RNA sequence: AUGCUGGCGAUGACAAGGAGAGUAGGCGAUCAAGGGAGUCGACAGAGAGCUGCCCCAAGGCUGGAAGGGCGGUGAUGACCGAUCGUUGAAGAUCACCUUGGAGCUUCACCCGUGAACAGGCUGAUGUGCAGUAGCGGGUGACGGAGGGUCCCGUUAUCAGACCGGAGUCCGACCAUGGACUCACAAAGCCCGCUUUCCGUGAGGAAGACGGGGAAACUGGGUGGUACCGCGCGUUCUCACGCCCCAGCG
Dot-bracket structure: ......((......((((......((((((.......(((........((((((.............))))))))).....))))))........))))...))..(((((((....................))))))).(((......)))...................................(((..((...........))..)))....((((.......(((.(....).)))))))...

This 249-nucleotide sequence from Laceyella tengchongensis belongs to the Rfam family "T-box leader". Lineage of the source: Bacteria > Bacillota > Caryophanales > Thermoactinomycetaceae > Laceyella. From the family's description: Uncharged tRNA acts as the effector for transcription antitermination of genes in the T-box leader family. The literature on the family includes a 1994 paper in J Bacteriol by Grundy et al., "Interaction between the acceptor end of tRNA and the T box stimulates antitermination in the Bacillus subtilis tyrS gene: a new role for the discriminator base".